[Rfam]
Nucleotides: 079
Stems, first nucleotide, its partner, number of pairs: 002078023
Number, partner (000 for none) and nucleotide at each position: 001000a002078c003077c004076a005075c006074u007073g008072a009071g010070c011069c012068a013067c014066c015065u016064u017063c018062c019061c020060a021059g022058c023057c024056c025000a026000g027000g028000a029000g030000u031000u032000a033000g034000c035000u036000a037000u038000u039000u040000u041000u042000u043000a044000u045000g046000a047000a048000a049000a050000a051000g052000a053000a054000a055000g056024g057023g058022g059021c060020u061019g062018g063017g064016a065015a066014g067013g068012u069011g070010g071009c072008u073007c074006a075005g076004u077003g078002g079000u
Rfam assigns this 79-nucleotide sequence from Dipodomys ordii to the family "mir-3473 microRNA precursor family". The source organism's lineage runs through Eukaryota, Metazoa, Tetrapoda, Eutheria and Dipodomys. The base pairs follow the family's consensus structure, which was predicted with RNAalifold. The match comes from Rfam's covariance-model search (77 bits).